This 53-nucleotide sequence from Agrobacterium sp. AGB01 belongs to the Rfam family "serC leader".
By type it is a cis-regulatory leader.
The source organism's lineage runs through Bacteria, Pseudomonadati, Alphaproteobacteria, Hyphomicrobiales and Agrobacterium.
This family is a putative regulatory RNA structure that is found upstream of the serC-serA operon in some alpha-proteobacteria.
RNA sequence: GGGCAGGCCACCUUUCCCUAACGAAAGGCUUUCUAUCUGGAAGGAUAGCAUAA
Numbered sequence: 001g002g003g004c005a006g007g008c009c010a011c012c013u014u015u016c017c018c019u020a021a022c023g024a025a026a027g028g029c030u031u032u033c034u035a036u037c038u039g040g041a042a043g044g045a046u047a048g049c050a051u052a053a
Stems, first nucleotide, its partner, number of pairs: 011028006033048006